[Rfam]
MIR474 microRNA precursor family: an 89-nucleotide RNA from Populus tomentosa. Taxonomically the source falls in Populus (Eukaryota, Mesangiospermae, Gunneridae, Saliceae). Its family is annotated with miRNA-mediated post-transcriptional gene silencing and RISC complex in the Gene Ontology. It scores 50 bits against the family's covariance model.
Nucleotides: 089
Stems, first nucleotide, its partner, number of pairs: 001087002004084006013075011025063008034054009
Number, partner (000 for none) and nucleotide at each position: 001087a002086u003000a004084a005083a006082u007081a008080u009079u010000a011000u012000u013075u014074u015073u016072a017071g018070g019069u020068c021067a022066g023065g024000a025063g026062u027061u028060g029059c030058a031057g032056c033000c034054a035053a036052a037051c038050u039049c040048a041047a042046g043000a044000a045000u046042c047041u048040u049039g050038g051037g052036u053035u054034u055000u056032g057031c058030u059029g060028c061027a062026a063025c064000g065023c066022c067021u068020g069019a070018c071017c072016u073015a074014a075013g076000a077000g078000u079009a080008a081007u082006a083005u084004u085000u086002a087001u088000a089000a